small Cajal body-specific RNA 17: a 142-nucleotide RNA from Castor canadensis. The match comes from Rfam's covariance-model search (86 bits). The family's RNA type in Rfam is small Cajal body RNA. Gene Ontology terms of the family: Cajal body, RNA processing and nucleolus. The base pairs follow the family's consensus structure, which is taken from published work. Rfam describes the family as follows. scaRNAs are a specific class of small nuclear RNAs which localise to the Cajal bodies and guide the modification of RNA polymerase II transcribed spliceosomal RNAs U1, U2, U4, U5 and U12. The complete human U12-22/U4-8 scaRNA is composed of two tandem C/D box domains (termed U12-22 and U4-8). On this family, see Tycowski et al., Curr Biol 2004: "Guide RNAs with 5' Caps and Novel Box C/D snoRNA-like Domains for Modification of snRNAs in Metazoa". The family has 6 seed sequences and 262 matches in Rfam 15.1.
[Rfam]
RNA sequence: CUCCUGGGUCUGGAUGCAGCCUCUGGUGACCCCACAGAAUUUUCCUUACAUGAUAUUGCACCCUCAUUGGUGGCAUUGCUGGCUCGGAGCCUGAGAGGAUUAUAAAAACAUAGCAGGUGAAGUGGAGCCAGGGGACCUGAGG
Numbered sequence: 001c002u003c004c005u006g007g008g009u010c011u012g013g014a015u016g017c018a019g020c021c022u023c024u025g026g027u028g029a030c031c032c033c034a035c036a037g038a039a040u041u042u043u044c045c046u047u048a049c050a051u052g053a054u055a056u057u058g059c060a061c062c063c064u065c066a067u068u069g070g071u072g073g074c075a076u077u078g079c080u081g082g083c084u085c086g087g088a089g090c091c092u093g094a095g096a097g098g099a100u101u102a103u104a105a106a107a108a109c110a111u112a113g114c115a116g117g118u119g120a121a122g123u124g125g126a127g128c129c130a131g132g133g134g135a136c137c138u139g140a141g142g
Stems, first nucleotide, its partner, number of pairs: 001141002004139001006137002009134003019128002022125002054094001058090002061087002067082006